[Rfam]
RNA sequence: GGGAGUAGAUAGGUAACUGGUGUGCCUCCUGGUCUUCAAAACCAGUGUGGGGUGUUAGUAGCAUCCUAGGUGGGUUCGAUUCCCACAUUCUCCC
Numbered sequence: 001g002g003g004a005g006u007a008g009a010u011a012g013g014u015a016a017c018u019g020g021u022g023u024g025c026c027u028c029c030u031g032g033u034c035u036u037c038a039a040a041a042c043c044a045g046u047g048u049g050g051g052g053u054g055u056u057a058g059u060a061g062c063a064u065c066c067u068a069g070g071u072g073g074g075u076u077c078g079a080u081u082c083c084c085a086c087a088u089u090c091u092c093c094c
Stems, first nucleotide, its partner, number of pairs: 001094005007088001008086001011027005017022001029045005048068005071085004
RNA: Selenocysteine transfer RNA